[Rfam]
Rfam assigns this 54-nucleotide RNA sequence from Hemibagrus wyckioides to the family "UnaL2 LINE 3' element". Gene Ontology term of the family: transposition, RNA-mediated. The family's consensus secondary structure is taken from published work. The organism belongs to Hemibagrus, within Eukaryota.
RNA sequence: AUGAGAUAAAAAUGUAAAUCACUCUGGAUAAGGGUGUCUGCUAAAUGCCAGAAA
Numbered sequence: 001a002u003g004a005g006a007u008a009a010a011a012a013u014g015u016a017a018a019u020c021a022c023u024c025u026g027g028a029u030a031a032g033g034g035u036g037u038c039u040g041c042u043a044a045a046u047g048c049c050a051g052a053a054a
Stems, first nucleotide, its partner, number of pairs: 013043001014041003020036006
A search with the family's covariance model found it, with a score of 55 bits. By type it is a cis-regulatory element.